[Rfam]
RNA: mir-252 microRNA precursor family
RNA sequence: UCCGGAUAUUAAGUAGUUGCGCCGAAGGUGAUGUCUUUGAUAAUUCUCCUCGGUUUAGCUGCUUAUUAUCUGGA
Numbered sequence: 001u002c003c004g005g006a007u008a009u010u011a012a013g014u015a016g017u018u019g020c021g022c023c024g025a026a027g028g029u030g031a032u033g034u035c036u037u038u039g040a041u042a043a044u045u046c047u048c049c050u051c052g053g054u055u056u057a058g059c060u061g062c063u064u065a066u067u068a069u070c071u072g073g074a
Stems, first nucleotide, its partner, number of pairs: 001074007010065010024051001026050003030046001